[Rfam]
RNA sequence: ACGCUGGGUAGUCGUUGCAUUUCCACACUGCUGCAAGGUAGCAGCUGAAAGAGGGUGAAAAUGCACCAACUAUCUGAGAU
Numbered sequence: 001a002c003g004c005u006g007g008g009u010a011g012u013c014g015u016u017g018c019a020u021u022u023c024c025a026c027a028c029u030g031c032u033g034c035a036a037g038g039u040a041g042c043a044g045c046u047g048a049a050a051g052a053g054g055g056u057g058a059a060a061a062u063g064c065a066c067c068a069a070c071u072a073u074c075u076g077a078g079a080u
Stems, first nucleotide, its partner, number of pairs: 004078002006075007014067001016065007024057003028053002030045005
RNA: mir-4989 microRNA precursor family
Organism: Echinococcus granulosus